Source information
Rfam assigns this 122-nucleotide sequence from Vitis rotundifolia to the family "MIR397 microRNA precursor family". On this family, see Mica et al., BMC Genomics 2009: "High throughput approaches reveal splicing of primary microRNA transcripts and tissue specific expression of mature microRNAs in Vitis vinifera". The match comes from Rfam's covariance-model search (55 bits). Its family is annotated with RISC complex and miRNA-mediated post-transcriptional gene silencing in the Gene Ontology.
RNA sequence: AAAAAAGACAUGACUGAGUGCAGCGCCGAUGGAAUCAACCAGAACCCAUCUUGCCGGACUUCAAAGAAGCUGAAAAAUGGAAUACUUCAGUUUCAUCAACGCUGCACUCAAUGAUGUUUUUU
Numbered sequence: 001a002a003a004a005a006a007g008a009c010a011u012g013a014c015u016g017a018g019u020g021c022a023g024c025g026c027c028g029a030u031g032g033a034a035u036c037a038a039c040c041a042g043a044a045c046c047c048a049u050c051u052u053g054c055c056g057g058a059c060u061u062c063a064a065a066g067a068a069g070c071u072g073a074a075a076a077a078u079g080g081a082a083u084a085c086u087u088c089a090g091u092u093u094c095a096u097c098a099a100c101g102c103u104g105c106a107c108u109c110a111a112u113g114a115u116g117u118u119u120u121u122u
Stems, first nucleotide, its partner, number of pairs: 006119006013112001015110011028097001030095006